[Rfam]
RNA sequence: UCCCUCGCUUUUCCUCCCUGAGCGAGGCCAUCGACAGCGGUGGUUAUCGGUCCGCCUGAUGCGCAAGCCAGGCGGACCUUUUCUU
Number, nucleotide and partner (000 for none) at each position: 001u000002c000003c000004c026005u025006c024007g023008c022009u021010u000011u000012u000013c000014c000015u000016c000017c000018c000019u000020g000021a009022g008023c007024g006025a005026g004027g044028c043029c042030a041031u040032c039033g038034a000035c000036a000037g000038c033039g032040g031041u030042g029043g028044u027045u000046a000047u000048c000049g000050g077051u076052c075053c074054g073055c072056c071057u070058g000059a000060u000061g000062c000063g000064c000065a000066a000067g000068c000069c000070a057071g056072g055073c054074g053075g052076a051077c050078c000079u000080u000081u000082u000083c000084u000085u000
RNA: Burkholderia RNA 7 (anti-hemB)